Shown here is a 190-nucleotide part of an RNA from Emiliania huxleyi, a member of the family "Eukaryotic large subunit ribosomal RNA".
[Rfam]
RNA sequence: CGGAUGGGCCCGGCUUCGGCGCGCCGACUCAGCCUGGGGUUCUCCCCAGGUGCACUUCUGCGCGCCGGGUCAGCCGCGCCUCGGCGCCGCGCCUCAACCCGGGAGCGGGGCUUUACGGCCAGCUCCCGUCCUGGCGCGGCCCGGGGCCCGGCUGACGGAACGGGCCCCUCCGACCCGUCUAGAAACACGG
Numbered sequence: 001c002g003g004a005u006g007g008g009c010c011c012g013g014c015u016u017c018g019g020c021g022c023g024c025c026g027a028c029u030c031a032g033c034c035u036g037g038g039g040u041u042c043u044c045c046c047c048a049g050g051u052g053c054a055c056u057u058c059u060g061c062g063c064g065c066c067g068g069g070u071c072a073g074c075c076g077c078g079c080c081u082c083g084g085c086g087c088c089g090c091g092c093c094u095c096a097a098c099c100c101g102g103g104a105g106c107g108g109g110g111c112u113u114u115a116c117g118g119c120c121a122g123c124u125c126c127c128g129u130c131c132u133g134g135c136g137c138g139g140c141c142c143g144g145g146g147c148c149c150g151g152c153u154g155a156c157g158g159a160a161c162g163g164g165c166c167c168c169u170c171c172g173a174c175c176c177g178u179c180u181a182g183a184a185a186c187a188c189g190g
Stems, first nucleotide, its partner, number of pairs: 001172004006167007017067008071154006175190004
NCBI's taxonomy places the organism under Eukaryota, Prymnesiophyceae, Noelaerhabdaceae, Emiliania, Emiliania huxleyi.